RNA sequence: GUUCAAGAGUUGUGGCUGACAGUACCUGGCUGGCCGCACGGCAACCCGAUCCAUCUUUCCGGGUGCCCCAGGAGAAGAACGGGCACGUGACAGACGUCGCGCGCAAGCUCUGAUG
Numbered sequence: 001g002u003u004c005a006a007g008a009g010u011u012g013u014g015g016c017u018g019a020c021a022g023u024a025c026c027u028g029g030c031u032g033g034c035c036g037c038a039c040g041g042c043a044a045c046c047c048g049a050u051c052c053a054u055c056u057u058u059c060c061g062g063g064u065g066c067c068c069c070a071g072g073a074g075a076a077g078a079a080c081g082g083g084c085a086c087g088u089g090a091c092a093g094a095c096g097u098c099g100c101g102c103g104c105a106a107g108c109u110c111u112g113a114u115g
Stems, first nucleotide, its partner, number of pairs: 001080004009039001011038006021031002040067003045063003049058001083104002086101006
RNA: SAM (S-adenosyl methionine) riboswitch aptamer